[Rfam]
RNA: PyrR binding site
Organism: Clostridiaceae bacterium 14S0207
RNA sequence: AUAACCUUUAAAAAUAGAUCCAGAGAGGUCUAAAAGGAAGAGAAAAGUUCGGAUAUAGGUGUUCUAUAUCUAUGGCUAAAAAAGAAAAUUUUACAUUUAUGGCGCACAUAAAUCUUCCUUUAAAAGGAAGAUUUUUUUUAU
Numbered sequence: 001a002u003a004a005c006c007u008u009u010a011a012a013a014a015u016a017g018a019u020c021c022a023g024a025g026a027g028g029u030c031u032a033a034a035a036g037g038a039a040g041a042g043a044a045a046a047g048u049u050c051g052g053a054u055a056u057a058g059g060u061g062u063u064c065u066a067u068a069u070c071u072a073u074g075g076c077u078a079a080a081a082a083a084g085a086a087a088a089u090u091u092u093a094c095a096u097u098u099a100u101g102g103c104g105c106a107c108a109u110a111a112a113u114c115u116u117c118c119u120u121u122a123a124a125a126g127g128a129a130g131a132u133u134u135u136u137u138u139u140a141u
Base pairs, nucleotide, nucleotide: 005037006036007035008034009033015032016031017030018029019028020027048080049079051077052076054074055073056072057071058070059069060068061067108136110134111133112132113131114130115129116128117127118126119125120124